[Rfam]
Group II catalytic intron D1-D4-3: a 175-nucleotide sequence from a Dysgonamonadaceae bacterium. Lineage of the source: Bacteria > Pseudomonadati > Bacteroidota > Bacteroidales > Dysgonomonadaceae. Rfam's curators write: Group II introns are found in rRNA, tRNA and mRNA of organelles in fungi, plants and protists, and also in mRNA in bacteria.
RNA sequence: UUGCAGGUGAUUGCAAAUCUGAAAGAAGCCAUCAGCAAAGACAGCGUAUCAACGCACAGAAAUCGGAUAUAAGGCUGACAAACGGAGGGCGAGCGAGCCAUGGAUUGCGAUAUCCCAAAAACCAACCGUAACCGUUUCCGGUAAAUCCGGUGGUACCUGUCGAAAGCAGUAUUGU
Numbered sequence: 001u002u003g004c005a006g007g008u009g010a011u012u013g014c015a016a017a018u019c020u021g022a023a024a025g026a027a028g029c030c031a032u033c034a035g036c037a038a039a040g041a042c043a044g045c046g047u048a049u050c051a052a053c054g055c056a057c058a059g060a061a062a063u064c065g066g067a068u069a070u071a072a073g074g075c076u077g078a079c080a081a082a083c084g085g086a087g088g089g090c091g092a093g094c095g096a097g098c099c100a101u102g103g104a105u106u107g108c109g110a111u112a113u114c115c116c117a118a119a120a121a122c123c124a125a126c127c128g129u130a131a132c133c134g135u136u137u138c139c140g141g142u143a144a145a146u147c148c149g150g151u152g153g154u155a156c157c158u159g160u161c162g163a164a165a166g167c168a169g170u171a172u173u174g175u
Stems, first nucleotide, its partner, number of pairs: 001016006028175002031172002035167002040161005046156006063150006074142003080137006087115003093108004